[Rfam]
RNA sequence: GAUAAUGCGGGCGAGAAACCCGCACACCGAAAGACUAAGGUUUCCUGAUCAACGCUAAUCGGAUCAGGGUUAGUCGGGUCCUAAGACCGAUGCGAGAGCUAAGGCCGAUGGACAACUGGUUAAUAUUCCAGUACUAGCGUGACCCAGCGAUGCGGUGACGGAGAAGUGAAAGGCCCGCCUGGUGACGGAAUACCAGGUUGAAGCGCGUAGUUAUAGGACCGGUAGUGAAGUACGCCGGACCUGACGAAACGCGAUAGUACCCCAAGCCCCCGGGCGAGGGGAUAGUGGCCCUAAUCCCGCUCCCUAGAAAACCCGCUAAGCGUUAAAGGUCACGCUACCCGUACCGCAAUCCGACACAGGUAGUCGAGGAGAGAAUCCUAAGGUGCU
Numbered sequence: 001g002a003u004a005a006u007g008c009g010g011g012c013g014a015g016a017a018a019c020c021c022g023c024a025c026a027c028c029g030a031a032a033g034a035c036u037a038a039g040g041u042u043u044c045c046u047g048a049u050c051a052a053c054g055c056u057a058a059u060c061g062g063a064u065c066a067g068g069g070u071u072a073g074u075c076g077g078g079u080c081c082u083a084a085g086a087c088c089g090a091u092g093c094g095a096g097a098g099c100u101a102a103g104g105c106c107g108a109u110g111g112a113c114a115a116c117u118g119g120u121u122a123a124u125a126u127u128c129c130a131g132u133a134c135u136a137g138c139g140u141g142a143c144c145c146a147g148c149g150a151u152g153c154g155g156u157g158a159c160g161g162a163g164a165a166g167u168g169a170a171a172g173g174c175c176c177g178c179c180u181g182g183u184g185a186c187g188g189a190a191u192a193c194c195a196g197g198u199u200g201a202a203g204c205g206c207g208u209a210g211u212u213a214u215a216g217g218a219c220c221g222g223u224a225g226u227g228a229a230g231u232a233c234g235c236c237g238g239a240c241c242u243g244a245c246g247a248a249a250c251g252c253g254a255u256a257g258u259a260c261c262c263c264a265a266g267c268c269c270c271c272g273g274g275c276g277a278g279g280g281g282a283u284a285g286u287g288g289c290c291c292u293a294a295u296c297c298c299g300c301u302c303c304c305u306a307g308a309a310a311a312c313c314c315g316c317u318a319a320g321c322g323u324u325a326a327a328g329g330u331c332a333c334g335c336u337a338c339c340c341g342u343a344c345c346g347c348a349a350u351c352c353g354a355c356a357c358a359g360g361u362a363g364u365c366g367a368g369g370a371g372a373g374a375a376u377c378c379u380a381a382g383g384u385g386c387u
Base pairs, nucleotide, nucleotide: 006024007023008022009021010020011019025385026384027383028382033365034364035363036362039345040344044068045067046066047065048064049063053061054060075341076340077339078338080111081110085106087104092099093098115132116131117130118129119128135337136336137335138334139333140332141331142330143329144328147321148320152316153315154314155313160303161302162301163300166296172290173289174288175287177198178197179196180195181194182193199264200263203252204251205250210245211244212243217240219238220237221236222235223234225233226232266283268281269280270279271278351360352359367379368378369377370376
Bacterial large subunit ribosomal RNA: a 387-nucleotide part of an RNA from Rufibacter ruber. Taxonomically the source falls in Rufibacter (Bacteria, Pseudomonadati, Cytophagia, Hymenobacteraceae).